[Rfam]
Nucleotides: 084
Base pairs, nucleotide, nucleotide: 001084003082004081005080006079007078008077
Number, partner (000 for none) and nucleotide at each position: 001084g002000a003082c004081c005080g006079g007078g008077g009000g010000g011000a012000a013000g014000g015000a016000a017000a018000a019000a020000a021000u022000a023000c024000a025000a026000a027000a028000u029000g030000a031000a032000g033000c034000a035000u036000c037000u038000a039000a040000u041000a042000u043000g044000g045000g046000c047000a048000a049000g050000c051000a052000g053000g054000g055000a056000a057000u058000u059000a060000g061000a062000a063000a064000g065000a066000u067000u068000u069000g070000c071000a072000c073000u074000u075000g076000a077008u078007c079006c080005u081004g082003g083000c084001c
The family of this 84-nucleotide RNA sequence from Lentivirus humimdef1 is "HIV gag stem loop 3 (GSL3)". From the family's description: This family consists of several HIV gag stem loop 3 (GSL3) sequences. GSL3 is known to direct specific packaging of HIV-1 genomic RNA. Deletion of GSL3 leads to decreases in both viral RNA packaging and dimerisation. Rfam links the family to the GO term viral RNA genome packaging. A reference for the family is Damgaard et al. (2004), "RNA interactions in the 5' region of the HIV-1 genome", J Mol Biol.